[Rfam]
RNA sequence: AAGUACCUCCGAAUCCGAGCGCUCCGCGCUCGGAUAGGAGUAACGGCUGGUUGGCACAGCCAGCGGUUCGCCUGUUCGACCGUAGCGAGGGCCGUUUUGCCCCGCGAGAACAGGUCGCUCAAACGAACCGCGAACCCUAAUAUCCCAAACGCGGUCGGGAAUCCCCGUCCUCAGCGAGCGCCCGAAUGGGCGCGAGCAGGGCGGGGA
Numbered sequence: 001a002a003g004u005a006c007c008u009c010c011g012a013a014u015c016c017g018a019g020c021g022c023u024c025c026g027c028g029c030u031c032g033g034a035u036a037g038g039a040g041u042a043a044c045g046g047c048u049g050g051u052u053g054g055c056a057c058a059g060c061c062a063g064c065g066g067u068u069c070g071c072c073u074g075u076u077c078g079a080c081c082g083u084a085g086c087g088a089g090g091g092c093c094g095u096u097u098u099g100c101c102c103c104g105c106g107a108g109a110a111c112a113g114g115u116c117g118c119u120c121a122a123a124c125g126a127a128c129c130g131c132g133a134a135c136c137c138u139a140a141u142a143u144c145c146c147a148a149a150c151g152c153g154g155u156c157g158g159g160a161a162u163c164c165c166c167g168u169c170c171u172c173a174g175c176g177a178g179c180g181c182c183c184g185a186a187u188g189g190g191c192g193c194g195a196g197c198a199g200g201g202c203g204g205g206g207a
Stems, first nucleotide, its partner, number of pairs: 003044002007040004013035009045061005064130006071114007089102004143160004149155002162207009
Dot-bracket structure: ..((..((((..(((((((((.....))))))))).))))..))(((((.......)))))..((((((.(((((((...........((((......)))).....)))))))..........))))))............((((..((...)).)))).(((((((((............................)))))))))
The record is a 207-nucleotide RNA sequence from Halococcus morrhuae, which matches "Sense overlapping transcript RNA 0042 (sot)" in Rfam. For this family Rfam cites "Sense overlapping transcripts in IS1341-type transposase genes are functional non-coding RNAs in archaea" (Gomes-Filho et al., RNA Biol, 2015). Rfam's curators write: It is associated with IS1341-type transposase (tnpB) genes, at the 3'-end in H. salinarum NRC-1. The tetraloop structural motif may be functional. NCBI's taxonomy places the organism under Archaea, Methanobacteriota, Halobacteriales, Halococcus, Halococcus morrhuae. The family's RNA type in Rfam is small RNA. Rfam 15.1 lists 196 matches to the family in 82 species.